[Rfam]
RNA sequence: CAAUAAGCACCUGACAAACCAGAGACAGUGGGCGCGUUUAACGCCUAAUGAAUUCAUAUCACCCACCGAGGUUUGGAGAAAGACCCAUAGAGUAGCCGUAUAAGCUGCUUUCUUUGUGUACUUAUCUCCCGGCCUUGAUGGUUGGGAGAUUUUUUUUGGGAGGA
Numbered sequence: 001c002a003a004u005a006a007g008c009a010c011c012u013g014a015c016a017a018a019c020c021a022g023a024g025a026c027a028g029u030g031g032g033c034g035c036g037u038u039u040a041a042c043g044c045c046u047a048a049u050g051a052a053u054u055c056a057u058a059u060c061a062c063c064c065a066c067c068g069a070g071g072u073u074u075g076g077a078g079a080a081a082g083a084c085c086c087a088u089a090g091a092g093u094a095g096c097c098g099u100a101u102a103a104g105c106u107g108c109u110u111u112c113u114u115u116g117u118g119u120a121c122u123u124a125u126c127u128c129c130c131g132g133c134c135u136u137g138a139u140g141g142u143u144g145g146g147a148g149a150u151u152u153u154u155u156u157u158g159g160g161a162g163g164a
Base pairs, nucleotide, nucleotide: 028066029065030064031063032062034044035043036042125149126148127147128146129145130144131143132142133141134140
RNA: Ribosomal protein L10 leader